This 118-nucleotide sequence from Anguilla anguilla belongs to the Rfam family "U5 spliceosomal RNA". Lineage of the source: Eukaryota > Craniata > Neopterygii > Anguilliformes > Anguilla. Rfam's curators write: U5 RNA is a component of both types of known spliceosome. The precise function of this molecule is unknown, though it is known that the 5' loop is required for splice site selection and p220 binding, and that both the 3' stem-loop and the Sm site are important for Sm protein binding and cap methylation. Rfam 15.1 lists 28,527 matches to the family in 2,489 species. Its family is annotated with U5 snRNP and spliceosomal tri-snRNP complex assembly in the Gene Ontology.
[Rfam]
RNA sequence: GCACUCUGGUUUCUCUUCAUAUCGUACAAAUCUUUCGCCUUUUACUAAAGAUUUCCGUGGAGAGGAACAUUUAUGAGUAUCAAUUAAUUUUUUGUUAGCCCUGCCUUGCGGUGGGGCU
Numbered sequence: 001g002c003a004c005u006c007u008g009g010u011u012u013c014u015c016u017u018c019a020u021a022u023c024g025u026a027c028a029a030a031u032c033u034u035u036c037g038c039c040u041u042u043u044a045c046u047a048a049a050g051a052u053u054u055c056c057g058u059g060g061a062g063a064g065g066a067a068c069a070u071u072u073a074u075g076a077g078u079a080u081c082a083a084u085u086a087a088u089u090u091u092u093u094g095u096u097a098g099c100c101c102u103g104c105c106u107u108g109c110g111g112u113g114g115g116g117c118u
Stems, first nucleotide, its partner, number of pairs: 003078004009068011028054008098117006